Overview:
A member of the RNA family "Small nucleolar RNA SNORD14" from Artemisia annua, 126 nucleotides long. It is annotated as a C/D-box small nucleolar RNA. Rfam links the family to the GO terms nucleolus and RNA processing. From the family's description: U14 small nucleolar RNA (U14 snoRNA) is required for early cleavages of eukaryotic precursor rRNAs. In yeasts, this molecule possess a stem-loop region (known as the Y-domain) which is essential for function. A similar structure, but with a different consensus sequence, is found in plants, but is absent in vertebrates.

[Rfam]
RNA sequence: AAUUAGUGAUGAAAAAUCUAAGGCUUGUUUCUCAGAAACAUUCGCAGUGGCCGCCUAAGAACUUUCGCCUUCGCCAGGCUUGAGAGUUUAUGCUGUUUUUUCCUCCUUCCUUGGAUGUCUGAAGUU
Dot-bracket structure: ((((........................................................((((((...............))))))...................................))))

A search with the family's covariance model found it, with a score of 78 bits.